[Rfam]
RNA sequence: CUCUUAUCAAGAGGGUGGAGGGUCCGGCCCUUCGAAGCCCGGCAACCGGUCGCCACGGCGACAAUGGUGCCAACUCCGCCCCGAGUAAUCGGGGGAGAUAAGAG
Number, nucleotide and partner (000 for none) at each position: 001c104002u103003c102004u101005u100006a099007u098008c097009a000010a000011g000012a000013g040014g039015g038016u037017g000018g000019a000020g030021g029022g028023u000024c000025c078026g077027g076028c022029c021030c020031u000032u000033c000034g000035a000036a000037g016038c015039c014040c013041g071042g070043c069044a068045a000046c067047c066048g000049g062050u061051c060052g000053c000054c000055a000056c000057g000058g000059c000060g051061a050062c049063a000064a000065u000066g047067g046068u044069g043070c042071c041072a000073a000074c000075u096076c027077c026078g025079c000080c093081c092082c091083g090084a089085g000086u000087a000088a000089u084090c083091g082092g081093g080094g000095g000096a075097g008098a007099u006100a005101a004102g003103a002104g001
The family of this 104-nucleotide RNA from a Dehalococcoidia bacterium is "SAM riboswitch aptamer (S box leader)". Pairs were carried over by alignment from the consensus structure, which is taken from published work. Lineage of the source: Bacteria > Bacillati > Chloroflexota > Dehalococcoidia.